[Rfam]
RNA sequence: GAGCCUUUAGCCCGGGGUGCAGUGCUGCAUCUCUGGUCAGCUGUUAGUCUGAGAUGAAGCACUGUAGCUCAGGACUGAGGAACG
Numbered sequence: 001g002a003g004c005c006u007u008u009a010g011c012c013c014g015g016g017g018u019g020c021a022g023u024g025c026u027g028c029a030u031c032u033c034u035g036g037u038c039a040g041c042u043g044u045u046a047g048u049c050u051g052a053g054a055u056g057a058a059g060c061a062c063u064g065u066a067g068c069u070c071a072g073g074a075c076u077g078a079g080g081a082a083c084g
Base pairs, nucleotide, nucleotide: 011073012072016068018066019065020064021063022062023061024060025059026058028056029055030054031053032052033051035049036048037046
RNA: mir-143 microRNA precursor family
Organism: Muraenolepis orangiensis